[Rfam]
RNA sequence: ACCGGGAUGAGCGAGUGAAGGCAACGCGCCUGCGGCUCGAAAUAUGAAGGGGAGAGCCCUUAUAGACCAGGUAGUAUCACGUUUGGUUAGGGGGCCUGUAUAUGGCCCCC
Dot-bracket structure: ..((.(....(((.(((.......)))..).))..).)).......(((((.....)))))...(((((((..........))))))).(((((((.......)))))))

Chromosome-encoded Shigella sRNA A: a 110-nucleotide sequence from Salmonella enterica. NCBI's taxonomy places the organism under Bacteria, Pseudomonadota, Salmonella enterica, Salmonella enterica subsp. enterica, Salmonella enterica subsp. enterica serovar Typhimurium. By type it is a small RNA.